[Rfam]
RNA: Bacterial RNase P class A
Organism: Desulfovibrio sp. X2
RNA sequence: GGAGUCGGACGAGCCGCCGCCGCGAACGCGAGUUCGGGGAGGAAAGUCCGGGCUCCGCAGGGCAGGACGCUGGGCAACUCCCAGGGGGAGCGAUCCCCGGAAAGCGCCACAGAAAACAGACCGCCCGGUUCGCCGGGUAAGGGUGAAAAGGUGGGGCAAGAGCCCACCAGCGGGCGUGGCGACACGUCCGGCUAGGCAAGCCCCGUCCGGAGAAAGGCCAAAUAGGAGCGCGCUCGAGGUCGGCCCGACCGAAGCGCUCGGGUAGGCUGCUCGAGGCGCGGAGCAAUCCGCGCCCUAGAGGAAUGGCGGCAUAGAACAGAACCCGGCUUACGGUCCGGCUCCAGGU
Numbered sequence: 001g002g003a004g005u006c007g008g009a010c011g012a013g014c015c016g017c018c019g020c021c022g023c024g025a026a027c028g029c030g031a032g033u034u035c036g037g038g039g040a041g042g043a044a045a046g047u048c049c050g051g052g053c054u055c056c057g058c059a060g061g062g063c064a065g066g067a068c069g070c071u072g073g074g075c076a077a078c079u080c081c082c083a084g085g086g087g088g089a090g091c092g093a094u095c096c097c098c099g100g101a102a103a104g105c106g107c108c109a110c111a112g113a114a115a116a117c118a119g120a121c122c123g124c125c126c127g128g129u130u131c132g133c134c135g136g137g138u139a140a141g142g143g144u145g146a147a148a149a150g151g152u153g154g155g156g157c158a159a160g161a162g163c164c165c166a167c168c169a170g171c172g173g174g175c176g177u178g179g180c181g182a183c184a185c186g187u188c189c190g191g192c193u194a195g196g197c198a199a200g201c202c203c204c205g206u207c208c209g210g211a212g213a214a215a216g217g218c219c220a221a222a223u224a225g226g227a228g229c230g231c232g233c234u235c236g237a238g239g240u241c242g243g244c245c246c247g248a249c250c251g252a253a254g255c256g257c258u259c260g261g262g263u264a265g266g267c268u269g270c271u272c273g274a275g276g277c278g279c280g281g282a283g284c285a286a287u288c289c290g291c292g293c294c295c296u297a298g299a300g301g302a303a304u305g306g307c308g309g310c311a312u313a314g315a316a317c318a319g320a321a322c323c324c325g326g327c328u329u330a331c332g333g334u335c336c337g338g339c340u341c342c343a344g345g346u
Stems, first nucleotide, its partner, number of pairs: 001342010011331001013310006020039002023036005044329003048326005053212004060246004065208005070084005085098005099203002104201002106197003121142002123138006150168006170192001171190008216268004226259006238250004275294008